[Rfam]
RNA sequence: GAGGGACCCGUUGGCGGCUCCACGGGUGGCUCACCCGCGCCGUCCGAUCCCGUGGGGCACG
Numbered sequence: 001g002a003g004g005g006a007c008c009c010g011u012u013g014g015c016g017g018c019u020c021c022a023c024g025g026g027u028g029g030c031u032c033a034c035c036c037g038c039g040c041c042g043u044c045c046g047a048u049c050c051c052g053u054g055g056g057g058c059a060c061g
Stems, first nucleotide, its partner, number of pairs: 006027006013018001034056006
Notes: The family of this 61-nucleotide sequence from Actinacidiphila reveromycinica is "sul1 RNA". Lineage of the source: Bacteria > Actinomycetota > Actinomycetes > Streptomycetaceae > Actinacidiphila. Pairs were carried over by alignment from the consensus structure, which is taken from published work.